Background: Shown here is a 108-nucleotide RNA sequence, a member of the family "Parabacteroides-1 RNA". The family's RNA type in Rfam is small RNA. The base pairs follow the family's consensus structure, which is taken from published work.

RNA sequence: GAAAGAGCCGUUGGAUGAUACGCAACACUUGAGGGUUGCUCCUCUCCAAGAUCAUUCUUACGAGAAUGACAUAAGAAUUGUUGGGAGUUAAUACAAUUCGACUCUUUU
Numbered sequence: 001g002a003a004a005g006a007g008c009c010g011u012u013g014g015a016u017g018a019u020a021c022g023c024a025a026c027a028c029u030u031g032a033g034g035g036u037u038g039c040u041c042c043u044c045u046c047c048a049a050g051a052u053c054a055u056u057c058u059u060a061c062g063a064g065a066a067u068g069a070c071a072u073a074a075g076a077a078u079u080g081u082u083g084g085g086a087g088u089u090a091a092u093a094c095a096a097u098u099c100g101a102c103u104c105u106u107u108u
Stems, first nucleotide, its partner, number of pairs: 002107006009100002011049005017044002022039005053068006076098006